Shown here is an 85-nucleotide RNA from Salinibacillus xinjiangensis, a member of the family "c-di-GMP-I riboswitch aptamer".
[Rfam]
RNA sequence: AUUCUUAAAAGGCAAAGUUGUUGAAAAACGAUGACGCAAAGCUAACAGACCUAAGGUGAAUUGCUAAGGUGGCUGAGUUGCUAAG
Numbered sequence: 001a002u003u004c005u006u007a008a009a010a011g012g013c014a015a016a017g018u019u020g021u022u023g024a025a026a027a028a029c030g031a032u033g034a035c036g037c038a039a040a041g042c043u044a045a046c047a048g049a050c051c052u053a054a055g056g057u058g059a060a061u062u063g064c065u066a067a068g069g070u071g072g073c074u075g076a077g078u079u080g081c082u083a084a085g
Stems, first nucleotide, its partner, number of pairs: 012037002017032006040079004046075003049070003056064003

Background
Rfam's curators write: GEMM was predicted in a large-scale screen for bacterial structured RNA regulatory elements. It scores 68 bits against the family's covariance model. The organism belongs to Salinibacillus, within Bacteria.